[Rfam]
RNA sequence: ACAUUCCGACAGGGGAGCGCACAGCGCUGAGAGUGCGGCGAAGGCCGCAGACCCUCGAACCUGAACCGGGUCAUACCGGCGUAGGGAGUUCGGUCGCAUACUCGA
Numbered sequence: 001a002c003a004u005u006c007c008g009a010c011a012g013g014g015g016a017g018c019g020c021a022c023a024g025c026g027c028u029g030a031g032a033g034u035g036c037g038g039c040g041a042a043g044g045c046c047g048c049a050g051a052c053c054c055u056c057g058a059a060c061c062u063g064a065a066c067c068g069g070g071u072c073a074u075a076c077c078g079g080c081g082u083a084g085g086g087a088g089u090u091c092g093g094u095c096g097c098a099u100a101c102u103c104g105a
Stems, first nucleotide, its partner, number of pairs: 006093004011055004017027004034049005060085004066079004
Dot-bracket structure: .....((((.((((..((((...))))......(((((......)))))..))))....((((..((((......))))..))))....))))............
The family of this 105-nucleotide RNA sequence from Streptomyces sp. Ru87 is "TPP riboswitch aptamer (THI element)". From the family's description: Vitamin B(1) in its active form thiamin pyrophosphate (TPP) is an essential coenzyme that is synthesised by coupling of pyrimidine and thiazole moieties in bacteria. The family's consensus secondary structure is taken from published work.